[Rfam]
RNA sequence: UCAGCACCUUGCUAGGUGAGGCUCCUAUUUGAACACAGGCCACUGAUCUGACGACGUCGAGAGACGCCUAAGGUUAGGACAGGUCUUCCCGGAUUAAGGGAUGACCCAAAGUGGCUCCCCGCGACAGCGAGGUUACGUCGGAUAGUGCCGAAGCCCUGACGAGAGGGGUGCCCC
Numbered sequence: 001u002c003a004g005c006a007c008c009u010u011g012c013u014a015g016g017u018g019a020g021g022c023u024c025c026u027a028u029u030u031g032a033a034c035a036c037a038g039g040c041c042a043c044u045g046a047u048c049u050g051a052c053g054a055c056g057u058c059g060a061g062a063g064a065c066g067c068c069u070a071a072g073g074u075u076a077g078g079a080c081a082g083g084u085c086u087u088c089c090c091g092g093a094u095u096a097a098g099g100g101a102u103g104a105c106c107c108a109a110a111g112u113g114g115c116u117c118c119c120c121g122c123g124a125c126a127g128c129g130a131g132g133u134u135a136c137g138u139c140g141g142a143u144a145g146u147g148c149c150g151a152a153g154c155c156c157u158g159a160c161g162a163g164a165g166g167g168g169u170g171c172c173c174c
Stems, first nucleotide, its partner, number of pairs: 005170006011160001013097001015155003020149003025145008039115005045075005055066004082106004088100003118132002
Dot-bracket structure: ....(((((((.[.(((..(((..((((((((......(((((.(((((.....((((....))))....)))))......((((..(((......])))..))))....)))))..((...........)).....)))))))).)))...)))....)....))))))....
The family of this 174-nucleotide RNA from Mycolicibacterium sarraceniae is "M-box riboswitch aptamer (ykoK leader)". Lineage of the source: Bacteria > Bacillati > Mycobacteriales > Mycobacteriaceae > Mycobacterium (subgen. Mycolicibacterium). M-box riboswitch, also know as ykoK leader is described as a metaloregulatory RNA that sense divalent metals and function as a genetic control element of genes related to divalent metal transport in bacteria.